[Rfam]
RNA: mir-338 microRNA precursor family
Organism: Scophthalmus maximus
RNA sequence: CCUGUAACAACAUCCUGGUGCUGCCUGAGUAGUUGUCACAAAACUCCAGCAUCAGUGAUUUUGUUGCCGG
Numbered sequence: 001c002c003u004g005u006a007a008c009a010a011c012a013u014c015c016u017g018g019u020g021c022u023g024c025c026u027g028a029g030u031a032g033u034u035g036u037c038a039c040a041a042a043a044c045u046c047c048a049g050c051a052u053c054a055g056u057g058a059u060u061u062u063g064u065u066g067c068c069g070g
Base pairs, nucleotide, nucleotide: 006065007064008063009062010061012059013058014057015055016054017053018052019051020050021049022048023047